[Rfam]
RNA sequence: AGCCUUAUUCUACAUAAGAAUGGGUGCUGUCAAUCAGUGUCCAAAACUGGAUAAUGUGGCUAAAUUGAGACACAGGUCAUGCUUCCAUCACAGUAGAUAUAUUACAGUGGUGACAAUGAGACCUGCAACAUUU
Numbered sequence: 001a002g003c004c005u006u007a008u009u010c011u012a013c014a015u016a017a018g019a020a021u022g023g024g025u026g027c028u029g030u031c032a033a034u035c036a037g038u039g040u041c042c043a044a045a046a047c048u049g050g051a052u053a054a055u056g057u058g059g060c061u062a063a064a065u066u067g068a069g070a071c072a073c074a075g076g077u078c079a080u081g082c083u084u085c086c087a088u089c090a091c092a093g094u095a096g097a098u099a100u101a102u103u104a105c106a107g108u109g110g111u112g113a114c115a116a117u118g119a120g121a122c123c124u125g126c127a128a129c130a131u132u133u
Base pairs, nucleotide, nucleotide: 002060003059004058006056007055008054021043022042023041024040025039026038027037073125074124075123076122086112087111088110089109090108091107
Background
The record is a 133-nucleotide sequence from Cricetulus griseus, which matches "Small nucleolar RNA SNORA1" in Rfam. NCBI's taxonomy places the organism under Eukaryota, Eumetazoa, Boreoeutheria, Cricetidae, Cricetulus. By type it is an H/ACA-box small nucleolar RNA.